[Rfam]
Description
A member of the RNA family "skipping-rope RNA", 81 nucleotides long.
RNA sequence: AUUUUGUGAAGUAGAAAAGGCUCUCUACACACCUGCUUGUCAGGUACCUGAGAUGGUGGGUACGCCGUCCACCCAUAAAAU
Numbered sequence: 001a002u003u004u005u006g007u008g009a010a011g012u013a014g015a016a017a018a019g020g021c022u023c024u025c026u027a028c029a030c031a032c033c034u035g036c037u038u039g040u041c042a043g044g045u046a047c048c049u050g051a052g053a054u055g056g057u058g059g060g061u062a063c064g065c066c067g068u069c070c071a072c073c074c075a076u077a078a079a080a081u
Base pairs, nucleotide, nucleotide: 001081002080003079004078005077006076007075008074011028012027013026014025015024019066020065021064030050031045032044033043034042055073056072057071058070059069